Shown here is a 70-nucleotide RNA from Cesiribacter andamanensis, a member of the family "Fluoride riboswitch aptamer (crcB RNA motif)".
RNA sequence: GCAGCCAUAGGCAAUGGUGUCUGCCUUGAACCGCCUGGAUACAGCUCAGGAUGAUGGCGCCUGCUCCCAG
Numbered sequence: 001g002c003a004g005c006c007a008u009a010g011g012c013a014a015u016g017g018u019g020u021c022u023g024c025c026u027u028g029a030a031c032c033g034c035c036u037g038g039a040u041a042c043a044g045c046u047c048a049g050g051a052u053g054a055u056g057g058c059g060c061c062u063g064c065u066c067c068c069a070g
Base pairs, nucleotide, nucleotide: 010025011024012023013022016061017060018059019058020057021056034050035049036048037047038046
The match comes from Rfam's covariance-model search (47 bits).